[Rfam]
RNA sequence: GGAUCUGAAAUCAGGUGGGAUUACCCGCUGAACUUAAGCAUAUCAAUAAGCGGAGGAAAAGAAACUAACAAGGAUUCCCCUAGUAACGGCGAGUGAAGAGGGAAAAGCUCAAAGUUGGAACCUGUUUGGCUUAGCUAAACCGGAUUGUAAACUAAAGAGCCGUUUUCCAGACGAGCUAAGCAAAAAAGUCCCUUGGAACAGGGCAUCAUAGAGGGUGAGAAUCCCGUCUUUGGCUUAAGCGAUUUCGUCUUUAUGUGAUACGGCUUCAAAGAGUCAGGUUGUUUGGGAAUGCAGCCUAAAGUGGGUGGUAAAUCUCAUCUAAAGCUAAAUAUUGGCGAGAGACCGAUAGCGAACAAGUACCGUGAGGGAAAGAUGAAAAGAACUUUGAAAAGAGAGUUAAACAGUAUGUGAAAUUGCUGAAAGGGAAC
Numbered sequence: 001g002g003a004u005c006u007g008a009a010a011u012c013a014g015g016u017g018g019g020a021u022u023a024c025c026c027g028c029u030g031a032a033c034u035u036a037a038g039c040a041u042a043u044c045a046a047u048a049a050g051c052g053g054a055g056g057a058a059a060a061g062a063a064a065c066u067a068a069c070a071a072g073g074a075u076u077c078c079c080c081u082a083g084u085a086a087c088g089g090c091g092a093g094u095g096a097a098g099a100g101g102g103a104a105a106a107g108c109u110c111a112a113a114g115u116u117g118g119a120a121c122c123u124g125u126u127u128g129g130c131u132u133a134g135c136u137a138a139a140c141c142g143g144a145u146u147g148u149a150a151a152c153u154a155a156a157g158a159g160c161c162g163u164u165u166u167c168c169a170g171a172c173g174a175g176c177u178a179a180g181c182a183a184a185a186a187a188g189u190c191c192c193u194u195g196g197a198a199c200a201g202g203g204c205a206u207c208a209u210a211g212a213g214g215g216u217g218a219g220a221a222u223c224c225c226g227u228c229u230u231u232g233g234c235u236u237a238a239g240c241g242a243u244u245u246c247g248u249c250u251u252u253a254u255g256u257g258a259u260a261c262g263g264c265u266u267c268a269a270a271g272a273g274u275c276a277g278g279u280u281g282u283u284u285g286g287g288a289a290u291g292c293a294g295c296c297u298a299a300a301g302u303g304g305g306u307g308g309u310a311a312a313u314c315u316c317a318u319c320u321a322a323a324g325c326u327a328a329a330u331a332u333u334g335g336c337g338a339g340a341g342a343c344c345g346a347u348a349g350c351g352a353a354c355a356a357g358u359a360c361c362g363u364g365a366g367g368g369a370a371a372g373a374u375g376a377a378a379a380g381a382a383c384u385u386u387g388a389a390a391a392g393a394g395a396g397u398u399a400a401a402c403a404g405u406a407u408g409u410g411a412a413a414u415u416g417c418u419g420a421a422a423g424g425g426a427a428c
Base pairs, nucleotide, nucleotide: 024055025053026052027051028050029049035042036041065072066071076103077102078101079100086094087093106326107325108324109323115150116149117148119146120145122143123142124140125139126138127137128136157267158266159264160263161262162261164260166258167257170249171248172247173246174245175244178236179235180234181233183231184230188204190203191202192201193200207211214224215223276297277296278295279294280293281292282291303320304319305318306317307316360367361366383394384393385392386391
The record is a 428-nucleotide part of an RNA from Phycomyces blakesleeanus, which matches "Eukaryotic large subunit ribosomal RNA" in Rfam.
The family has 88 seed sequences and 107,465 matches in Rfam 15.1.
The source organism's lineage runs through Eukaryota, Fungi, Mucoromycetes, Phycomycetaceae and Phycomyces blakesleeanus.